[Rfam]
RNA: Mammalian CPEB3 ribozyme
Organism: Crocodylus porosus
RNA sequence: UUACAAGUUCGAGGGCAAAACAGAAGCACUCACAGCACGGCCUGUCGGAUUCCAAUGAAUCUGCGAGUUCUGCU
Number, nucleotide and partner (000 for none) at each position: 001u000002u000003a000004c000005a000006a000007g000008u000009u000010c000011g000012a000013g042014g041015g000016c039017a000018a000019a074020a000021c072022a071023g070024a069025a068026g038027c000028a000029c000030u000031c000032a000033c000034a000035g000036c000037a000038c026039g016040g000041c014042c013043u000044g000045u000046c063047g062048g061049a060050u059051u058052c057053c000054a000055a000056u000057g052058a051059a050060u049061c048062u047063g046064c000065g000066a000067g000068u025069u024070c023071u022072g021073c000074u019